[Rfam]
RNA sequence: GGAGCCGACCACGUCUGUGUGCUGCGCGGAAACGGCUUGUCGUUCUUCCAUGCGCUUCUCACUGUAAGAGUCGGCAAGA
Numbered sequence: 001g002g003a004g005c006c007g008a009c010c011a012c013g014u015c016u017g018u019g020u021g022c023u024g025c026g027c028g029g030a031a032a033c034g035g036c037u038u039g040u041c042g043u044u045c046u047u048c049c050a051u052g053c054g055c056u057u058c059u060c061a062c063u064g065u066a067a068g069a070g071u072c073g074g075c076a077a078g079a
Base pairs, nucleotide, nucleotide: 004075005074006073007072008071009070017062018061019060023054